[Rfam]
Shown here is a 371-nucleotide RNA sequence from Nocardioides szechwanensis, a member of the family "transfer-messenger RNA".
RNA sequence: GGGGCUGAUCGGUUUCGACUUGGGACGUUAGUUCCAGGGGAAGCGGGUCGAGAAGCCAACGUCAUCUCGUAAACGAUCGUUGGAAACCUAUAACUGCCAACACCAAUCGCAGUUCCUUCGCUCUCGCUGCCUGAGCAGUGAUCGAAGCGCACACCCGGGCACCCGUCUCCGUCCCGGAUCUGUGCGUCAUCUAGGAGACUUGCCGCUCAAUCCGCGUCGCGGAGGUUGAGCGGGACAAUUCCGUGACUGAGCCUGUCGGGGACGUGUUCGUGCGAGCCCCGGGGCCGAGAAAAGCGACAUCACGAACUGCACCCGGAGAAGACCUGGUUCGACGCUCGAGGACGCGGGUUCGAUUCCCGCCAGCUCCACUC
Numbered sequence: 001g002g003g004g005c006u007g008a009u010c011g012g013u014u015u016c017g018a019c020u021u022g023g024g025a026c027g028u029u030a031g032u033u034c035c036a037g038g039g040g041a042a043g044c045g046g047g048u049c050g051a052g053a054a055g056c057c058a059a060c061g062u063c064a065u066c067u068c069g070u071a072a073a074c075g076a077u078c079g080u081u082g083g084a085a086a087c088c089u090a091u092a093a094c095u096g097c098c099a100a101c102a103c104c105a106a107u108c109g110c111a112g113u114u115c116c117u118u119c120g121c122u123c124u125c126g127c128u129g130c131c132u133g134a135g136c137a138g139u140g141a142u143c144g145a146a147g148c149g150c151a152c153a154c155c156c157g158g159g160c161a162c163c164c165g166u167c168u169c170c171g172u173c174c175c176g177g178a179u180c181u182g183u184g185c186g187u188c189a190u191c192u193a194g195g196a197g198a199c200u201u202g203c204c205g206c207u208c209a210a211u212c213c214g215c216g217u218c219g220c221g222g223a224g225g226u227u228g229a230g231c232g233g234g235a236c237a238a239u240u241c242c243g244u245g246a247c248u249g250a251g252c253c254u255g256u257c258g259g260g261g262a263c264g265u266g267u268u269c270g271u272g273c274g275a276g277c278c279c280c281g282g283g284g285c286c287g288a289g290a291a292a293a294g295c296g297a298c299a300u301c302a303c304g305a306a307c308u309g310c311a312c313c314c315g316g317a318g319a320a321g322a323c324c325u326g327g328u329u330c331g332a333c334g335c336u337c338g339a340g341g342a343c344g345c346g347g348g349u350u351c352g353a354u355u356c357c358c359g360c361c362a363g364c365u366c367c368a369c370u371c
Stems, first nucleotide, its partner, number of pairs: 001367007019340006028331001031330001034327005044315005049069005056083006124141007148186006155177003159174001161172002165199006203233009216247005251285004258278001263274002266307004270301001344360005
The family is grouped with related families in Rfam's "tRNA clan". Bacterial tmRNA, also known as 10Sa RNA or SsrA, is named for its dual tRNA and mRNA-like properties. Its role is to liberate the mRNA from a stalled ribosome. To accomplish this part of the tmRNA is used as a reading frame that ends in a translation stop signal. The broken mRNA is replaced in the ribosome by the tmRNA and translation of the tmRNA leads to addition of a proteolysis tag to the incomplete protein enabling recognition by a protease. By type it is a non-coding RNA gene.